[Rfam]
RNA: ASpks TB sRNA
Organism: Streptomyces genisteinicus
RNA sequence: CUUCAGCGAGCCGAGCCAGAGCGGCUGGUCGUCCUCGCGCUCCUGCCCGUAGGUCGCCAGCAGCGCCUGUGCCUC
Number, nucleotide and partner (000 for none) at each position: 001c000002u000003u000004c000005a000006g000007c000008g000009a000010g000011c000012c000013g000014a026015g025016c024017c023018a000019g000020a000021g000022c000023g017024g016025c015026u014027g000028g000029u000030c000031g000032u000033c069034c000035u000036c000037g000038c065039g064040c000041u000042c000043c060044u059045g058046c000047c056048c000049g054050u000051a000052g000053g000054u049055c000056g047057c000058c045059a044060g043061c000062a000063g000064c039065g038066c000067c000068u000069g033070u000071g000072c000073c000074u000075c000